[Rfam]
RNA sequence: GGCGAUAAAUGGCCGUCGUAAUAAACCUUUCGGACCCGGGGGCAGUACCCGGCGCCUCCACCCGAGCCCAGUCGUCGCGCGCGAGCGUGUCGCGGUUGGGCUCCGGCGGGGGCGAAACAGGAUCGACGAGGGCGUAAAGGACGCGCUUUUGCUCGGCAUGGUUCCGCCGUUAUCGGGCCACUGCAAUAGUUGCCAACGACAACUAUGCUCCGGUUGCUCAGGCCGCGUAA
Numbered sequence: 001g002g003c004g005a006u007a008a009a010u011g012g013c014c015g016u017c018g019u020a021a022u023a024a025a026c027c028u029u030u031c032g033g034a035c036c037c038g039g040g041g042g043c044a045g046u047a048c049c050c051g052g053c054g055c056c057u058c059c060a061c062c063c064g065a066g067c068c069c070a071g072u073c074g075u076c077g078c079g080c081g082c083g084a085g086c087g088u089g090u091c092g093c094g095g096u097u098g099g100g101c102u103c104c105g106g107c108g109g110g111g112g113c114g115a116a117a118c119a120g121g122a123u124c125g126a127c128g129a130g131g132g133c134g135u136a137a138a139g140g141a142c143g144c145g146c147u148u149u150u151g152c153u154c155g156g157c158a159u160g161g162u163u164c165c166g167c168c169g170u171u172a173u174c175g176g177g178c179c180a181c182u183g184c185a186a187u188a189g190u191u192g193c194c195a196a197c198g199a200c201a202a203c204u205a206u207g208c209u210c211c212g213g214u215u216g217c218u219c220a221g222g223c224c225g226c227g228u229a230a
Stems, first nucleotide, its partner, number of pairs: 001153005014143004026132003030129003036052005053114007154169004
permuted transfer-messenger RNA: a 230-nucleotide RNA from Rhodoplanes elegans. The family's RNA type in Rfam is non-coding RNA gene. On this family, see Williams and Bartel, RNA 1996: "Phylogenetic analysis of tmRNA secondary structure". Pairs were carried over by alignment from the consensus structure, which is taken from published work. A search with the family's covariance model found it, with a score of 141 bits. Bacterial tmRNA, also known as 10Sa RNA or SsrA, is named for its dual tRNA and mRNA-like properties. Its role is to liberate the mRNA from a stalled ribosome.